[Rfam]
RNA sequence: CCUCAGGCUCCCUGGGACACUAACAGAGCAACUGCGCCCUGGGGAGAGUACGCCGAGCUCCCUAAGGGCUGCAGCACGCCCUGUUGGACCCGGGAGCAGCU
Numbered sequence: 001c002c003u004c005a006g007g008c009u010c011c012c013u014g015g016g017a018c019a020c021u022a023a024c025a026g027a028g029c030a031a032c033u034g035c036g037c038c039c040u041g042g043g044g045a046g047a048g049u050a051c052g053c054c055g056a057g058c059u060c061c062c063u064a065a066g067g068g069c070u071g072c073a074g075c076a077c078g079c080c081c082u083g084u085u086g087g088a089c090c091c092g093g094g095a096g097c098a099g100c101u
Base pairs, nucleotide, nucleotide: 007097008096009095010094011093012092014090015089018086019085020083028077032074033073034072035071036069037068038067039066041063042062043061044060045059046058049055
RNA: mir-8904 microRNA precursor family